[Rfam]
RNA sequence: CGGACAGGGGGGUCGCCGCCCGAACCGGCGGCGCCUGUCUUCAUUCAGGCCGUACGCAACGUACGGCCGGCGGUUGUCGCUCGGGAGUGGAUCGCCG
Numbered sequence: 001c002g003g004a005c006a007g008g009g010g011g012g013u014c015g016c017c018g019c020c021c022g023a024a025c026c027g028g029c030g031g032c033g034c035c036u037g038u039c040u041u042c043a044u045u046c047a048g049g050c051c052g053u054a055c056g057c058a059a060c061g062u063a064c065g066g067c068c069g070g071c072g073g074u075u076g077u078c079g080c081u082c083g084g085g086a087g088u089g090g091a092u093c094g095c096c097g
Stems, first nucleotide, its partner, number of pairs: 002040007014033007048068008
This 97-nucleotide RNA sequence from Streptomyces smaragdinus belongs to the Rfam family "che1 RNA". By type it is a small RNA. Lineage of the source: Bacteria > Bacillati > Actinomycetota > Kitasatosporales > Streptomyces.